[Rfam]
RNA sequence: CUCUUAAGCUGUUUUGAUUGUUGCUCAGAAAGCCGUGUUUUUCAUAAGGCUUUCUAGCAGUAAUCAAGACUAAAUUUGAG
Numbered sequence: 001c002u003c004u005u006a007a008g009c010u011g012u013u014u015u016g017a018u019u020g021u022u023g024c025u026c027a028g029a030a031a032g033c034c035g036u037g038u039u040u041u042u043c044a045u046a047a048g049g050c051u052u053u054c055u056a057g058c059a060g061u062a063a064u065c066a067a068g069a070c071u072a073a074a075u076u077u078g079a080g
Base pairs, nucleotide, nucleotide: 001080002079003078006075012069013068014067015066016065017064018063020061021060022059023058024057025056028054029053030052031051032050033049034048